A member of the RNA family "Plastid-psbA-4 3UTR RNA" from Conioselinum tenuissimum, 50 nucleotides long. It is annotated as a cis-regulatory element.

RNA sequence: AAAGGCAAUACCGCCCUCUUGUUCUAUCAAGAGGGCGGUAUUGCUUUUUU
Numbered sequence: 001a002a003a004g005g006c007a008a009u010a011c012c013g014c015c016c017u018c019u020u021g022u023u024c025u026a027u028c029a030a031g032a033g034g035g036c037g038g039u040a041u042u043g044c045u046u047u048u049u050u
Base pairs, nucleotide, nucleotide: 001048002047003046004045005044006043007042008041009040010039013036014035016033017032018031019030020029021028
About the family: Plastid psbA-4 is a non-coding RNA (ncRNA) present in plastids. It was identified in inverted repeat sequences in the 3 prime untranslate region (3UTR) of photosystem II quinone-binding protein (psbA). The source organism's lineage runs through Eukaryota, Tracheophyta, Gunneridae, campanulids and Conioselinum.